[Rfam]
RNA sequence: GAAUUGAAUAGGCAAAUUUGCCGAAAGGCAAAGACGCAAAGCUAACAGGGCCUAAAGUGUGUUCACUAUGGUAGCCAGCUGCGAAC
Numbered sequence: 001g002a003a004u005u006g007a008a009u010a011g012g013c014a015a016a017u018u019u020g021c022c023g024a025a026a027g028g029c030a031a032a033g034a035c036g037c038a039a040a041g042c043u044a045a046c047a048g049g050g051c052c053u054a055a056a057g058u059g060u061g062u063u064c065a066c067u068a069u070g071g072u073a074g075c076c077a078g079c080u081g082c083g084a085a086c
Base pairs, nucleotide, nucleotide: 012037013036017032018031019030020029021028022027040080041079042078043077048076049075050072051071052070057066058065059064